[Rfam]
Notes
The record is a 77-nucleotide sequence from Drosophila pseudoobscura, which matches "mir-1000 microRNA precursor family" in Rfam. The family's consensus secondary structure was predicted with RNAalifold.
RNA sequence: GCCAUUGAUAUUGUCCUGUCACAGCAGUAUUGUAACUUAAUUAUAGCCUACUGCUGGGUCGGGGCAUUAACAUUGUU
Numbered sequence: 001g002c003c004a005u006u007g008a009u010a011u012u013g014u015c016c017u018g019u020c021a022c023a024g025c026a027g028u029a030u031u032g033u034a035a036c037u038u039a040a041u042u043a044u045a046g047c048c049u050a051c052u053g054c055u056g057g058g059u060c061g062g063g064g065c066a067u068u069a070a071c072a073u074u075g076u077u
Base pairs, nucleotide, nucleotide: 003075004074006072012066013065014064015063016062017061018060022056023055024054025053026052027051028050029049
Rfam links the family to the GO terms negative regulation of glutamate secretion, neurotransmission, miRNA-mediated post-transcriptional gene silencing and RISC complex.